[Rfam]
Nucleotides: 074
Base pairs, nucleotide, nucleotide: 002035003034004033005032006031009029010028011027012026013025014024015023039070040069041068047063048062049061050060051059
Number, partner (000 for none) and nucleotide at each position: 001000c002035g003034g004033c005032g006031c007000a008000g009029g010028g011027c012026g013025g014024g015023g016000g017000u018000g019000g020000u021000g022000a023015c024014c025013c026012c027011g028010c029009c030000a031006g032005c033004g034003c035002c036000u037000a038000a039070c040069c041068a042000c043000c044000a045000a046000c047063u048062g049061c050060c051059u052000g053000a054000a055000c056000a057000g058000g059051a060050g061049g062048c063047a064000a065000u066000c067000a068041u069040g070039g071000c072000u073000a074000c